[Rfam]
RNA sequence: GGGUCGGCAGUUCACCCAGGCGUCGCCGCACGGGAUUUCCCGUGAGCUAAACCUGCCA
Numbered sequence: 001g002g003g004u005c006g007g008c009a010g011u012u013c014a015c016c017c018a019g020g021c022g023u024c025g026c027c028g029c030a031c032g033g034g035a036u037u038u039c040c041c042g043u044g045a046g047c048u049a050a051a052c053c054u055g056c057c058a
Stems, first nucleotide, its partner, number of pairs: 001017004029044006
This 58-nucleotide RNA from Mitsuaria sp. WAJ17 belongs to the Rfam family "COG3860 RNA". Lineage of the source: Bacteria > Pseudomonadati > Betaproteobacteria > Sphaerotilaceae > Roseateles.